[Rfam]
RNA sequence: AGGUCAUCUCAAAGAGGGCUUGUGGAGUUGUGAGACCAGGGGCUCUUAACGCUGUGACCUAAGAUGAAAGUUCUCCACAGAACGCCACAGUCACUCGGUAGUGUGCUGUUUUUUUCCUGAGGAGAUACAAGA
Numbered sequence: 001a002g003g004u005c006a007u008c009u010c011a012a013a014g015a016g017g018g019c020u021u022g023u024g025g026a027g028u029u030g031u032g033a034g035a036c037c038a039g040g041g042g043c044u045c046u047u048a049a050c051g052c053u054g055u056g057a058c059c060u061a062a063g064a065u066g067a068a069a070g071u072u073c074u075c076c077a078c079a080g081a082a083c084g085c086c087a088c089a090g091u092c093a094c095u096c097g098g099u100a101g102u103g104u105g106c107u108g109u110u111u112u113u114u115u116c117c118u119g120a121g122g123a124g125a126u127a128c129a130a131g132a
Stems, first nucleotide, its partner, number of pairs: 002059006014047008023039001027036001072125005079118002082115001087109004092103004
Small nucleolar RNA SNORA25: a 132-nucleotide RNA from Loxodonta africana. Rfam's curators write: ACA25 is a member of the H/ACA class of snoRNA that guide the sites of modification of uridines to pseudouridines. Rfam links the family to the GO terms RNA processing and nucleolus. A search with the family's covariance model found it, with a score of 114 bits.